[Rfam]
RNA sequence: CCCAGAGGUAUUGAUUGGUGAGAAUUCCUGGUACGUUUUCGUACUCUUCACUUGCACCAACCUGCGCGGAUGCGCAGGUUUUUUUU
Numbered sequence: 001c002c003c004a005g006a007g008g009u010a011u012u013g014a015u016u017g018g019u020g021a022g023a024a025u026u027c028c029u030g031g032u033a034c035g036u037u038u039u040c041g042u043a044c045u046c047u048u049c050a051c052u053u054g055c056a057c058c059a060a061c062c063u064g065c066g067c068g069g070a071u072g073c074g075c076a077g078g079u080u081u082u083u084u085u086u
Stems, first nucleotide, its partner, number of pairs: 016059005023048001030045006060079008
Overview:
Rfam assigns this 86-nucleotide RNA sequence to the family "OmrA-B family". The match comes from Rfam's covariance-model search (86 bits). Rfam classes the family as a small RNA. On this family, see Argaman et al., Curr Biol 2001: "Novel small RNA-encoding genes in the intergenic regions of Escherichia coli".